[Rfam]
RNA sequence: AUUCUUGCCCCAUGUUCGUCGGCGUUGCCGACACAUGCCCAGGCAGCCAAGACCUUCAAGGCUGCAAGCACGGGAAGCCGUGCUGGUCGAUGUUUUCCACGGACGUACCGCGUCCAUCCACACCACCCACAAGGGACCUCUCCCUUGCGGGC
Numbered sequence: 001a002u003u004c005u006u007g008c009c010c011c012a013u014g015u016u017c018g019u020c021g022g023c024g025u026u027g028c029c030g031a032c033a034c035a036u037g038c039c040c041a042g043g044c045a046g047c048c049a050a051g052a053c054c055u056u057c058a059a060g061g062c063u064g065c066a067a068g069c070a071c072g073g074g075a076a077g078c079c080g081u082g083c084u085g086g087u088c089g090a091u092g093u094u095u096u097c098c099a100c101g102g103a104c105g106u107a108c109c110g111c112g113u114c115c116a117u118c119c120a121c122a123c124c125a126c127c128c129a130c131a132a133g134g135g136a137c138c139u140c141u142c143c144c145u146u147g148c149g150g151g152c
Stems, first nucleotide, its partner, number of pairs: 011037005018032006043065006051088004067084007123151002130147007
RNA: radC RNA
Organism: Bordetella ansorpii